c-di-GMP-I-GGC riboswitch aptamer: a 90-nucleotide RNA sequence from Paenibacillus ginsengarvi. Taxonomically the source falls in Paenibacillus (Bacteria, Bacillota, Bacilli, Paenibacillaceae). Its Rfam clan is "c-di-GMP_I riboswitch clan".
RNA sequence: AACGAUAAAGGCAAACUUUCCGAAAGGGAAGGACGCAAAGCCACGGGCCUACCGAAUGGCAACAUUCCAUCGGCAGCCGGGCCGCCGAAA
Number, nucleotide and partner (000 for none) at each position: 001a000002a000003c087004g086005a000006u000007a000008a000009a000010g000011g036012c035013a000014a000015a000016c031017u030018u029019u028020c027021c026022g000023a000024a000025a000026g021027g020028g019029a018030a017031g016032g000033a000034c076035g012036c011037a000038a000039a000040g082041c081042c080043a000044c079045g078046g077047g074048c073049c072050u000051a000052c000053c000054g000055a000056a000057u000058g000059g000060c000061a000062a000063c000064a000065u000066u000067c000068c000069a000070u000071c000072g049073g048074c047075a000076g034077c046078c045079g044080g042081g041082c040083c000084g000085c000086c004087g003088a000089a000090a000